[Rfam]
RNA sequence: CUGAGCUCCGCUCGCCGGGGCUGCGUGCCGCCUUCGCAGGCACGCAGUUCCGUCGAGCGCGGCUCGACG
Numbered sequence: 001c002u003g004a005g006c007u008c009c010g011c012u013c014g015c016c017g018g019g020g021c022u023g024c025g026u027g028c029c030g031c032c033u034u035c036g037c038a039g040g041c042a043c044g045c046a047g048u049u050c051c052g053u054c055g056a057g058c059g060c061g062g063c064u065c066g067a068c069g
Stems, first nucleotide, its partner, number of pairs: 002066005009059006016052005022046008030037002